[Rfam]
RNA sequence: AUCAAGCAUCAGGAGUGAAUAAGAAAUUAUUCUGCCAACCUGCUUAGAGGAAAGUAAGGUGGAGUAGGAUGUGGUCUUAAUGACAAUUAAGUUCCUCAUCA
Numbered sequence: 001a002u003c004a005a006g007c008a009u010c011a012g013g014a015g016u017g018a019a020u021a022a023g024a025a026a027u028u029a030u031u032c033u034g035c036c037a038a039c040c041u042g043c044u045u046a047g048a049g050g051a052a053a054g055u056a057a058g059g060u061g062g063a064g065u066a067g068g069a070u071g072u073g074g075u076c077u078u079a080a081u082g083a084c085a086a087u088u089a090a091g092u093u094c095c096u097c098a099u100c101a
Stems, first nucleotide, its partner, number of pairs: 006072005015033001017032005035062002039059003042055003047096001049094002074084003

This 101-nucleotide RNA sequence belongs to the Rfam family "SAM-I/IV (S-adenosyl methionine) riboswitch aptamer". The base pairs follow the family's consensus structure, which is taken from published work.